MIR162_1 microRNA precursor family: a 100-nucleotide sequence from Lupinus angustifolius. The family is grouped with related families in Rfam's "MIR167 microRNA precursor clan". Rfam links the family to the GO terms miRNA-mediated post-transcriptional gene silencing and RISC complex. A reference for the family is Reinhart et al. (2002), "MicroRNAs in plants", Genes Dev. It scores 75 bits against the family's covariance model.

RNA sequence: AAAGUAAGCGCUGGAUGCAGAGGUUUAUCGAUCGAUUCAUGGUUUGUGUUAAUCAAAUUCACGAAGAGAUCGAUAAACCUCUGCCUCCAGUGACUUCACC
Numbered sequence: 001a002a003a004g005u006a007a008g009c010g011c012u013g014g015a016u017g018c019a020g021a022g023g024u025u026u027a028u029c030g031a032u033c034g035a036u037u038c039a040u041g042g043u044u045u046g047u048g049u050u051a052a053u054c055a056a057a058u059u060c061a062c063g064a065a066g067a068g069a070u071c072g073a074u075a076a077a078c079c080u081c082u083g084c085c086u087c088c089a090g091u092g093a094c095u096u097c098a099c100c
Base pairs, nucleotide, nucleotide: 013088014087015086018083019082020081022079023078024077025076027074028073029072030071031070032069033068036065037064038063